[Rfam]
RNA sequence: UCUCUGAUUCCAAAGUGCUGUUUGUGCAGGUAGAUGUAUCUAGAACUACUGCAAAGCCAGCACUUCUUGAGUCCUUGA
Numbered sequence: 001u002c003u004c005u006g007a008u009u010c011c012a013a014a015g016u017g018c019u020g021u022u023u024g025u026g027c028a029g030g031u032a033g034a035u036g037u038a039u040c041u042a043g044a045a046c047u048a049c050u051g052c053a054a055a056g057c058c059a060g061c062a063c064u065u066c067u068u069g070a071g072u073c074c075u076u077g078a
Stems, first nucleotide, its partner, number of pairs: 006073002009070002013065008022056002025053003029050005